A member of the RNA family "mir-223 microRNA precursor family" from Ameiurus melas, 106 nucleotides long. It scores 84 bits against the family's covariance model. Rfam links the family to the GO terms miRNA-mediated post-transcriptional gene silencing and RISC complex.
RNA sequence: CUCGGCGCUAUAGACUCUUCUCUUCGAGUAUUUGACAGACUGUGUGUGACACUCGCUCUCACUGGGUGUCAGUUUGUCAAAUACCCCAAGAGAGGAGUCACUACUC
Numbered sequence: 001c002u003c004g005g006c007g008c009u010a011u012a013g014a015c016u017c018u019u020c021u022c023u024u025c026g027a028g029u030a031u032u033u034g035a036c037a038g039a040c041u042g043u044g045u046g047u048g049a050c051a052c053u054c055g056c057u058c059u060c061a062c063u064g065g066g067u068g069u070c071a072g073u074u075u076g077u078c079a080a081a082u083a084c085c086c087c088a089a090g091a092g093a094g095g096a097g098u099c100a101c102u103a104c105u106c
Base pairs, nucleotide, nucleotide: 020092021091022090023089026086028084029083030082031081032080033079034078035077036076037075038074039073040072041071048070049069050068051067053065054064
The organism belongs to Ameiurus, within Eukaryota.